[Rfam]
Shown here is a 412-nucleotide RNA sequence from Nocardioides zeae, a member of the family "Bacterial RNase P class A". Its family is annotated with ribonuclease P activity, dimeric ribonuclease P complex and tRNA processing in the Gene Ontology. By type it is a ribozyme. The organism belongs to Nocardioides, within Bacteria.
RNA sequence: UGGGCUGGCCGGGCGGCCGCGGCGGCACCCUCGGGUGUCGUCGAGGAAGGUCCGGGCUCCACAGGGCGAGGUGGUGGGUAACGCCCACCCGGGGUGACCCGCGGGACAGUGCCACAGAGAACAGACCGCCGCCCUCCGGCUCCGGCCGGCGGGAGGCAAGGGUGAAACGGUGGUGCAAGAGACCACCAGCGCUCCGGGCGACCGGAGCGGCUCGGUAAACCCCACCUGGAGCAAGGUCGAGAAGUCCGCCUCCGCGAGGAGGUGGACGCGCGUGCGUUCGAGGGCUGCCCGCCCGAGCACGCGGGUGGACUGCACGAGGUCGUCGGCAACGGCGGCCCUAGAUGGAUGGCCGCACAUCGGUGCCCGGCAACGGGCCCGAGGACAGAACCCGGCCUACAGGCCAGCCCGUCCG
Numbered sequence: 001u002g003g004g005c006u007g008g009c010c011g012g013g014c015g016g017c018c019g020c021g022g023c024g025g026c027a028c029c030c031u032c033g034g035g036u037g038u039c040g041u042c043g044a045g046g047a048a049g050g051u052c053c054g055g056g057c058u059c060c061a062c063a064g065g066g067c068g069a070g071g072u073g074g075u076g077g078g079u080a081a082c083g084c085c086c087a088c089c090c091g092g093g094g095u096g097a098c099c100c101g102c103g104g105g106a107c108a109g110u111g112c113c114a115c116a117g118a119g120a121a122c123a124g125a126c127c128g129c130c131g132c133c134c135u136c137c138g139g140c141u142c143c144g145g146c147c148g149g150c151g152g153g154a155g156g157c158a159a160g161g162g163u164g165a166a167a168c169g170g171u172g173g174u175g176c177a178a179g180a181g182a183c184c185a186c187c188a189g190c191g192c193u194c195c196g197g198g199c200g201a202c203c204g205g206a207g208c209g210g211c212u213c214g215g216u217a218a219a220c221c222c223c224a225c226c227u228g229g230a231g232c233a234a235g236g237u238c239g240a241g242a243a244g245u246c247c248g249c250c251u252c253c254g255c256g257a258g259g260a261g262g263u264g265g266a267c268g269c270g271c272g273u274g275c276g277u278u279c280g281a282g283g284g285c286u287g288c289c290c291g292c293c294c295g296a297g298c299a300c301g302c303g304g305g306u307g308g309a310c311u312g313c314a315c316g317a318g319g320u321c322g323u324c325g326g327c328a329a330c331g332g333c334g335g336c337c338c339u340a341g342a343u344g345g346a347u348g349g350c351c352g353c354a355c356a357u358c359g360g361u362g363c364c365c366g367g368c369a370a371c372g373g374g375c376c377c378g379a380g381g382a383c384a385g386a387a388c389c390c391g392g393c394c395u396a397c398a399g400g401c402c403a404g405c406c407c408g409u410c411c412g
Stems, first nucleotide, its partner, number of pairs: 001408010011397001013353006020043009048395003052392005057231004064290004069227005074088005089103001090101004104222002109220002111216003126161002128157003132153003136149005169187006189211001190209008235311004270302006282294004318337008